[Rfam]
RNA sequence: CUUCUGGAUGAGCGUAAAAUGACAAGCAUAUGGCUGAAUUGCGGUGAUUAUCAUCUUACUACUGAGAAG
Numbered sequence: 001c002u003u004c005u006g007g008a009u010g011a012g013c014g015u016a017a018a019a020u021g022a023c024a025a026g027c028a029u030a031u032g033g034c035u036g037a038a039u040u041g042c043g044g045u046g047a048u049u050a051u052c053a054u055c056u057u058a059c060u061a062c063u064g065a066g067a068a069g
Stems, first nucleotide, its partner, number of pairs: 001069004
Rfam assigns this 69-nucleotide RNA sequence from Nannospalax galili to the family "Small nucleolar RNA SNORD27". Its family is annotated with RNA processing and nucleolus in the Gene Ontology. The family's RNA type in Rfam is C/D-box small nucleolar RNA. On this family, see Tycowski et al., Nature 1996: "A mammalian gene with introns instead of exons generating stable RNA products". A search with the family's covariance model found it, with a score of 59 bits. NCBI's taxonomy places the organism under Eukaryota, Eumetazoa, Bilateria, Rodentia, Nannospalax. The pairing is the family consensus, mapped onto this sequence.